[Rfam]
The record is a 274-nucleotide sequence from Amazona aestiva, which matches "Small Cajal body specific RNA 6" in Rfam.
A reference for the family is Darzacq et al. (2002), "Cajal body-specific small nuclear RNAs: a novel class of 2'-O-methylation and pseudouridylation guide RNAs", EMBO J.
Gene Ontology terms of the family: RNA processing and nucleolus.
About the family: U88 is small Cajal body specific RNA (scaRNA). scaRNAs are a novel class of small nuclear RNAs which localise to the Cajal bodies.
The base pairs follow the family's consensus structure, which is taken from published work.
RNA sequence: GGUCAAUGAUGACUUAGUAAAAGGUCUGAGGGCACAGGGGAAUUACACUCCAUUACCCUUUUGGCUCCCAGCAGUCCCUGUUCUGUCAUGCUAUAGUAGAGCUAUGAUAGAGGAAGAGAUUGCUGACAAUUUGGGAUUAAUUCAGUUCCAGUUCUCCACAGUGAAGGGAGUUGUGGCACUGAAUGUUACCCAACAGAGCUGGUUAAGAGGAGCUCAUGGUAGUGGUGUGUCUUCAUUUUUUUUGUGUGUGAUCUAAAGUUUUCAAGCUGAGACC
Numbered sequence: 001g002g003u004c005a006a007u008g009a010u011g012a013c014u015u016a017g018u019a020a021a022a023g024g025u026c027u028g029a030g031g032g033c034a035c036a037g038g039g040g041a042a043u044u045a046c047a048c049u050c051c052a053u054u055a056c057c058c059u060u061u062u063g064g065c066u067c068c069c070a071g072c073a074g075u076c077c078c079u080g081u082u083c084u085g086u087c088a089u090g091c092u093a094u095a096g097u098a099g100a101g102c103u104a105u106g107a108u109a110g111a112g113g114a115a116g117a118g119a120u121u122g123c124u125g126a127c128a129a130u131u132u133g134g135g136a137u138u139a140a141u142u143c144a145g146u147u148c149c150a151g152u153u154c155u156c157c158a159c160a161g162u163g164a165a166g167g168g169a170g171u172u173g174u175g176g177c178a179c180u181g182a183a184u185g186u187u188a189c190c191c192a193a194c195a196g197a198g199c200u201g202g203u204u205a206a207g208a209g210g211a212g213c214u215c216a217u218g219g220u221a222g223u224g225g226u227g228u229g230u231c232u233u234c235a236u237u238u239u240u241u242u243u244g245u246g247u248g249u250g251a252u253c254u255a256a257a258g259u260u261u262u263c264a265a266g267c268u269g270a271g272a273c274c
Stems, first nucleotide, its partner, number of pairs: 001274004036254003046229003050225004065212004069125007082111009091101001133191001135190001137188001139186001148176003154170004
Dot-bracket structure: ((((...............................(((.......(((.((((...........(((((((((((......((((((((((.........).))))))))).......))))))).......(.(.(.(........(((...((((.........))))...))).........).).)).................)))).........)))).)))......................)))................))))